[Rfam]
5' ureB small RNA: a 296-nucleotide RNA sequence from Actinoplanes philippinensis. NCBI's taxonomy places the organism under Bacteria, Bacillati, Actinomycetota, Micromonosporaceae, Actinoplanes.

RNA sequence: GUGUCCAGGAUGGUCGGGCUGAUCAGGUGCACGUGGCUGUCGAUCGCGCCGGCCGUGAGGAUCUUGCCGUUGCCGGCCAGGAUCUGCGUGCCCGGGCCGAUGACCAGAUCGGGGUGCACCCCGUCCAUGGUGUCCGGGUUGCCGGCCUUGCCGAUGGCGGCGAUCCGGCCGUCGCGGAUGCCGACGUCGGCCUUGACGAUGCCCCAGUGGUCGAGGACGACGACACCGGUGAUGACGGUGUCCGGGGCGCCCUCGGCGCGGGUGGCCCGGCCCUGGCCCAUCGACUCGCGGAUCAC
Numbered sequence: 001g002u003g004u005c006c007a008g009g010a011u012g013g014u015c016g017g018g019c020u021g022a023u024c025a026g027g028u029g030c031a032c033g034u035g036g037c038u039g040u041c042g043a044u045c046g047c048g049c050c051g052g053c054c055g056u057g058a059g060g061a062u063c064u065u066g067c068c069g070u071u072g073c074c075g076g077c078c079a080g081g082a083u084c085u086g087c088g089u090g091c092c093c094g095g096g097c098c099g100a101u102g103a104c105c106a107g108a109u110c111g112g113g114g115u116g117c118a119c120c121c122c123g124u125c126c127a128u129g130g131u132g133u134c135c136g137g138g139u140u141g142c143c144g145g146c147c148u149u150g151c152c153g154a155u156g157g158c159g160g161c162g163a164u165c166c167g168g169c170c171g172u173c174g175c176g177g178a179u180g181c182c183g184a185c186g187u188c189g190g191c192c193u194u195g196a197c198g199a200u201g202c203c204c205c206a207g208u209g210g211u212c213g214a215g216g217a218c219g220a221c222g223a224c225a226c227c228g229g230u231g232a233u234g235a236c237g238g239u240g241u242c243c244g245g246g247g248c249g250c251c252c253u254c255g256g257c258g259c260g261g262g263u264g265g266c267c268c269g270g271c272c273c274u275g276g277c278c279c280a281u282c283g284a285c286u287c288g289c290g291g292a293u294c295a296c
Base pairs, nucleotide, nucleotide: 001296002295003294005290008287009286011163013161014160015159016158018074020072021071022070028051029050032048033047036045038043055067056066057065075152076151079148080147081146083144088142089141090140092138093137095134096133097132103128107125108124109123111121112120168277169276170275171274174271175270177268180267181265182264190224192222194220204213227261229259234254235253238252240250